[Rfam]
RNA sequence: AUAUACACUGAGUAGUCAGAUUAUUAUGAUCUCUGAACCCAUAAUGAUCUGGCCACUCAGUGUAUAU
Numbered sequence: 001a002u003a004u005a006c007a008c009u010g011a012g013u014a015g016u017c018a019g020a021u022u023a024u025u026a027u028g029a030u031c032u033c034u035g036a037a038c039c040c041a042u043a044a045u046g047a048u049c050u051g052g053c054c055a056c057u058c059a060g061u062g063u064a065u066a067u
Stems, first nucleotide, its partner, number of pairs: 004064010015053003019049010
Rfam assigns this 67-nucleotide RNA sequence from Cnephaeus nilssonii to the family "mir-9256 microRNA precursor family". It scores 84 bits against the family's covariance model. The family has 8 seed sequences and 31,772 matches in Rfam 15.1.